This 179-nucleotide sequence from Neobacillus thermocopriae belongs to the Rfam family "Lysine riboswitch aptamer". A search with the family's covariance model found it, with a score of 142 bits. Rfam describes the family as follows. Riboswitches are metabolite binding domains within certain messenger RNAs that serve as precision sensors for their corresponding targets.
RNA sequence: AGUGAAGGUAGAGGUGCGAACUUCAAGAGUAAAAGUCCGGAGAAGGAUGAGCUUCAACGAUGGGCUUUGAAAGGGGAUGUUCGCCGAAGUGAAGAAAGGCUCAUUUCUUUCUUUGCUGGUCCAGUGUUGAAUAAAUACUGGAUUGUCAAGACGAAUCGUCUUGGAGCGCUAUCUUUCAU
Numbered sequence: 001a002g003u004g005a006a007g008g009u010a011g012a013g014g015u016g017c018g019a020a021c022u023u024c025a026a027g028a029g030u031a032a033a034a035g036u037c038c039g040g041a042g043a044a045g046g047a048u049g050a051g052c053u054u055c056a057a058c059g060a061u062g063g064g065c066u067u068u069g070a071a072a073g074g075g076g077a078u079g080u081u082c083g084c085c086g087a088a089g090u091g092a093a094g095a096a097a098g099g100c101u102c103a104u105u106u107c108u109u110u111c112u113u114u115g116c117u118g119g120u121c122c123a124g125u126g127u128u129g130a131a132u133a134a135a136u137a138c139u140g141g142a143u144u145g146u147c148a149a150g151a152c153g154a155a156u157c158g159u160c161u162u163g164g165a166g167c168g169c170u171a172u173c174u175u176u177c178a179u
Stems, first nucleotide, its partner, number of pairs: 006174006016084006022077003032068008088117012118144011146164007